[Rfam]
RNA sequence: CCGCCCGUCGUUGUUACCGAUGUCAGUUUGAUACAGGUCAACGGACGGCGCCGGCGCCCACGGGCCCUCCGCCGGAAGUUGACCGAUAUUAAACUAGUAGAGGAAGCAAAAGUCGUAACAAGGUAGCUGUAGGUGAACCUGCAGCUGGAUCAUUA
Numbered sequence: 001c002c003g004c005c006c007g008u009c010g011u012u013g014u015u016a017c018c019g020a021u022g023u024c025a026g027u028u029u030g031a032u033a034c035a036g037g038u039c040a041a042c043g044g045a046c047g048g049c050g051c052c053g054g055c056g057c058c059c060a061c062g063g064g065c066c067c068u069c070c071g072c073c074g075g076a077a078g079u080u081g082a083c084c085g086a087u088a089u090u091a092a093a094c095u096a097g098u099a100g101a102g103g104a105a106g107c108a109a110a111a112g113u114c115g116u117a118a119c120a121a122g123g124u125a126g127c128u129g130u131a132g133g134u135g136a137a138c139c140u141g142c143a144g145c146u147g148g149a150u151c152a153u154u155a
Stems, first nucleotide, its partner, number of pairs: 001122001003119001006115002009112001011109005017103002021099003025095009036084007046074005053067002058063001124147010
This 155-nucleotide part of an RNA from Perkinsela sp. CCAP 1560/4 belongs to the Rfam family "Eukaryotic small subunit ribosomal RNA". The family's consensus secondary structure is taken from published work. A reference for the family is Yusupov et al. (2001), "Crystal structure of the ribosome at 5.5 A resolution", Science. Lineage of the source: Eukaryota > Euglenozoa > Prokinetoplastida > Perkinselidae > Perkinsela.